[Rfam]
RNA sequence: GGGAAGACUCUGCUAAGCGUUCCUCGUUAUCAGAGCGCUACGUACGGUUUACGGGAGGGUCCUGGAUUAGCCCCUAAACCAGGCUCGGUGCGAACAGGUGCGCCCUGAUUCGAUGCCAGCCGUUUGGCUCUGGGUGAAAGUCCCCGGACAGUAGGUCAGAGAGUGUCGGUGGUAAGCAAAGCUGGGCGUUUCAGGUCGCGCACACUUCUGCUCGCGGGACUGCAACCACAGAACCCCAAUAAGAGCGGGAGUGCUGCGCGACAGUGAACGUCGCUUGUCGAUGGUGCAGCGCUGGAACCUGCUGCCGCGUUGGGGUGCUUGCGCCCCAUGUUUGGCAGCGGCAGCCUGCACUGAAUCAGCAAUGGAACGAGCGAGAGCGACCGUCCUUCAUGGACGGCGACUCGUGAACACAAUGGGGCUUACUCUGGCAGUGUGCUCCC
Numbered sequence: 001g002g003g004a005a006g007a008c009u010c011u012g013c014u015a016a017g018c019g020u021u022c023c024u025c026g027u028u029a030u031c032a033g034a035g036c037g038c039u040a041c042g043u044a045c046g047g048u049u050u051a052c053g054g055g056a057g058g059g060u061c062c063u064g065g066a067u068u069a070g071c072c073c074c075u076a077a078a079c080c081a082g083g084c085u086c087g088g089u090g091c092g093a094a095c096a097g098g099u100g101c102g103c104c105c106u107g108a109u110u111c112g113a114u115g116c117c118a119g120c121c122g123u124u125u126g127g128c129u130c131u132g133g134g135u136g137a138a139a140g141u142c143c144c145c146g147g148a149c150a151g152u153a154g155g156u157c158a159g160a161g162a163g164u165g166u167c168g169g170u171g172g173u174a175a176g177c178a179a180a181g182c183u184g185g186g187c188g189u190u191u192c193a194g195g196u197c198g199c200g201c202a203c204a205c206u207u208c209u210g211c212u213c214g215c216g217g218g219a220c221u222g223c224a225a226c227c228a229c230a231g232a233a234c235c236c237c238a239a240u241a242a243g244a245g246c247g248g249g250a251g252u253g254c255u256g257c258g259c260g261a262c263a264g265u266g267a268a269c270g271u272c273g274c275u276u277g278u279c280g281a282u283g284g285u286g287c288a289g290c291g292c293u294g295g296a297a298c299c300u301g302c303u304g305c306c307g308c309g310u311u312g313g314g315g316u317g318c319u320u321g322c323g324c325c326c327c328a329u330g331u332u333u334g335g336c337a338g339c340g341g342c343a344g345c346c347u348g349c350a351c352u353g354a355a356u357c358a359g360c361a362a363u364g365g366a367a368c369g370a371g372c373g374a375g376a377g378c379g380a381c382c383g384u385c386c387u388u389c390a391u392g393g394a395c396g397g398c399g400a401c402u403c404g405u406g407a408a409c410a411c412a413a414u415g416g417g418g419c420u421u422a423c424u425c426u427g428g429c430a431g432u433g434u435g436c437u438c439c440c
Stems, first nucleotide, its partner, number of pairs: 002440002005437002011430005018369006030134001031132006047117001049115001052112004138421003142418004155167001157165002210227001212225001214223002229341001231339001237334003242329001247326003258322004305315002308312001371405005

Notes: A member of the RNA family "RNase MRP" from Cyanidioschyzon merolae, 440 nucleotides long. Rfam 15.1 lists 3,510 matches to the family in 2,315 species. It is one of the family's seed sequences. Rfam describes the family as follows. RNase MRP is an enzymatically active ribonucleoprotein with two distinct roles in eukaryotes. In mitochondria it plays a direct role in the initiation of mitochondrial DNA replication. In the nucleus it is involved in precursor rRNA processing, where it cleaves the internal transcribed spacer 1 between 18S and 5.8S rRNAs. Despite distinct functions, RNase MRP has been shown to be evolutionarily related to RNase P. Like eukaryotic RNase P, RNase MRP is not catalytically active without associated protein subunits.